Description:
The family of this 153-nucleotide RNA from Ammoniphilus oxalaticus is "SAM riboswitch aptamer (S box leader)". NCBI's taxonomy places the organism under Bacteria, Bacillati, Bacilli, Paenibacillaceae, Ammoniphilus. It scores 55 bits against the family's covariance model.
RNA sequence: CUCUUAUUCCGAGAAGGCAUGAGGGACUGGCCCGAUGACGCCCGGCAACCUACGAACUGAAUUCAUAUUUUUCCAUAAAUAGGGAAGGAUAGAAUGAGGCCGUGUAAGGUGCUAACCAGCAGGAUGAGUUUUAUUUGUCCUGGAAAAUAAGAG
Numbered sequence: 001c002u003c004u005u006a007u008u009c010c011g012a013g014a015a016g017g018c019a020u021g022a023g024g025g026a027c028u029g030g031c032c033c034g035a036u037g038a039c040g041c042c043c044g045g046c047a048a049c050c051u052a053c054g055a056a057c058u059g060a061a062u063u064c065a066u067a068u069u070u071u072u073c074c075a076u077a078a079a080u081a082g083g084g085a086a087g088g089a090u091a092g093a094a095u096g097a098g099g100c101c102g103u104g105u106a107a108g109g110u111g112c113u114a115a116c117c118a119g120c121a122g123g124a125u126g127a128g129u130u131u132u133a134u135u136u137g138u139c140c141u142g143g144a145a146a147a148u149a150a151g152a153g
Base pairs, nucleotide, nucleotide: 001153002152003151004150005149006148007147008146013043016042017041018040023033024032025031027119028118029117030116044113045112046111047110049109050108051106052105053104054103120142121141122140123139124138125137126136127135128134